[Rfam]
RNA sequence: UGUGUCAAUGGUACCGAAGACCGCUUUUUGGUCGAGGAUAAGGAAUUGACACAAUCACAGAC
Numbered sequence: 001u002g003u004g005u006c007a008a009u010g011g012u013a014c015c016g017a018a019g020a021c022c023g024c025u026u027u028u029u030g031g032u033c034g035a036g037g038a039u040a041a042g043g044a045a046u047u048g049a050c051a052c053a054a055u056c057a058c059a060g061a062c
Stems, first nucleotide, its partner, number of pairs: 001053009

Shown here is a 62-nucleotide sequence from Anaerosacchariphilus polymeriproducens, a member of the family "Bacillus-plasmid RNA". The family has 31 seed sequences and 155 matches in Rfam 15.1. Lineage of the source: Bacteria > Bacillota > Clostridia > Lachnospiraceae > Anaerosacchariphilus. It is annotated as a small RNA.